[Rfam]
Small nucleolar RNA SNORD2: a 67-nucleotide sequence from Canis lupus. Its family is annotated with RNA processing and nucleolus in the Gene Ontology. The family's RNA type in Rfam is C/D-box small nucleolar RNA. Taxonomically the source falls in Canis lupus (Eukaryota, Gnathostomata, Laurasiatheria, Canidae). The family has 17 seed sequences and 1,116 matches in Rfam 15.1. A reference for the family is Zhou et al. (2004), "Identification of a novel box C/D snoRNA from mouse nucleolar cDNA library", Gene.

RNA sequence: AAGUGAAAUGAUAGCAGUCAUCUUUCAGAAAUGACCUGAUGAAGAGAAUAUUCAUUGCUGAACACUU
Numbered sequence: 001a002a003g004u005g006a007a008a009u010g011a012u013a014g015c016a017g018u019c020a021u022c023u024u025u026c027a028g029a030a031a032u033g034a035c036c037u038g039a040u041g042a043a044g045a046g047a048a049u050a051u052u053c054a055u056u057g058c059u060g061a062a063c064a065c066u067u
Stems, first nucleotide, its partner, number of pairs: 001067005